[Rfam]
RNA sequence: CCUGACUUGAGUCUCUCUUUAGGGUGCCAUGGGCAAGGCCGGAGACCCAGGGAGAGAUGUAAGUAAGG
Numbered sequence: 001c002c003u004g005a006c007u008u009g010a011g012u013c014u015c016u017c018u019u020u021a022g023g024g025u026g027c028c029a030u031g032g033g034c035a036a037g038g039c040c041g042g043a044g045a046c047c048c049a050g051g052g053a054g055a056g057a058u059g060u061a062a063g064u065a066a067g068g
Stems, first nucleotide, its partner, number of pairs: 002067002005064004011058009022048004028042001030041003

About this RNA
Shown here is a 68-nucleotide RNA sequence from Cervus elaphus, a member of the family "mir-711 microRNA precursor family". Gene Ontology terms of the family: RISC complex and miRNA-mediated post-transcriptional gene silencing.